[Rfam]
Record summary:
Shown here is a 176-nucleotide RNA from Natronolimnohabitans innermongolicus, a member of the family "Sense overlapping transcript RNA 0042 (sot)".
RNA sequence: AAGUAACUCCGAGUCUCGCUACGGAUGGCGGUGAUAGGAGUAACGGCUGGUUGGCACAGCCAUCGACCUACCUGUUCGAUUCCGAGAGCGGAUGCUUUGCACCGCAAGAACACGUAGGCUCGUAGACCAUAAAUAUCCCAACCGAAGUCGGGAUUCCCGCGUCUUCAGGCGCGGGA
Numbered sequence: 001a002a003g004u005a006a007c008u009c010c011g012a013g014u015c016u017c018g019c020u021a022c023g024g025a026u027g028g029c030g031g032u033g034a035u036a037g038g039a040g041u042a043a044c045g046g047c048u049g050g051u052u053g054g055c056a057c058a059g060c061c062a063u064c065g066a067c068c069u070a071c072c073u074g075u076u077c078g079a080u081u082c083c084g085a086g087a088g089c090g091g092a093u094g095c096u097u098u099g100c101a102c103c104g105c106a107a108g109a110a111c112a113c114g115u116a117g118g119c120u121c122g123u124a125g126a127c128c129a130u131a132a133a134u135a136u137c138c139c140a141a142c143c144g145a146a147g148u149c150g151g152g153a154u155u156c157c158c159g160c161g162u163c164u165u166c167a168g169g170c171g172c173g174g175g176a
Stems, first nucleotide, its partner, number of pairs: 003044002007040004013035003016031006045061005064122003068118002071114001073112005090103002093101003136153004141148002155176009
Lineage of the source: Archaea > Methanobacteriota > Halobacteriales > Natronolimnohabitans > Natronolimnohabitans innermongolicus.
It is associated with IS1341-type transposase (tnpB) genes, at the 3'-end in H. salinarum NRC-1. The tetraloop structural motif may be functional.
It scores 131 bits against the family's covariance model.
By type it is a small RNA.